[Rfam]
RNA sequence: AAAUGCGCUACGGGGAACAAUAAAAACAGCGCGGGGGUAGCGUUGCCGGCACGCUUUCGGCGUGCCGGCAGCGGUUGUCUGCAUGCACGACGGGGCCAACAUCACAACAAGCCACCAUGCAGGCACGUACGCCCAUUCGAUGGGCGUUCCGCCGUCCGGCCGGGGCAAGCAGACGCGGGCGGCGGCGGACGCAUUUUUCAU
Numbered sequence: 001a002a003a004u005g006c007g008c009u010a011c012g013g014g015g016a017a018c019a020a021u022a023a024a025a026a027c028a029g030c031g032c033g034g035g036g037g038u039a040g041c042g043u044u045g046c047c048g049g050c051a052c053g054c055u056u057u058c059g060g061c062g063u064g065c066c067g068g069c070a071g072c073g074g075u076u077g078u079c080u081g082c083a084u085g086c087a088c089g090a091c092g093g094g095g096c097c098a099a100c101a102u103c104a105c106a107a108c109a110a111g112c113c114a115c116c117a118u119g120c121a122g123g124c125a126c127g128u129a130c131g132c133c134c135a136u137u138c139g140a141u142g143g144g145c146g147u148u149c150c151g152c153c154g155u156c157c158g159g160c161c162g163g164g165g166c167a168a169g170c171a172g173a174c175g176c177g178g179g180c181g182g183c184g185g186c187g188g189a190c191g192c193a194u195u196u197u198u199c200a201u
Stems, first nucleotide, its partner, number of pairs: 001196007008036002011033002014030001041073015076125010093103002129147008148189007156182003160178003164174001
RNA: Burkholderia sRNA 1